[Rfam]
RNA sequence: CGGGACGUAGCGCAGUUUGGUAGCGCGCACGGUUCGGGACCGUGAGGUCGCUGGUUCGAAUCCAGUCGUCCCGA
Numbered sequence: 001c002g003g004g005a006c007g008u009a010g011c012g013c014a015g016u017u018u019g020g021u022a023g024c025g026c027g028c029a030c031g032g033u034u035c036g037g038g039a040c041c042g043u044g045a046g047g048u049c050g051c052u053g054g055u056u057c058g059a060a061u062c063c064a065g066u067c068g069u070c071c072c073g074a
Base pairs, nucleotide, nucleotide: 001073002072003071004070005069006068007067010026011025012024013023028044029043030042031041032040050066051065052064053063054062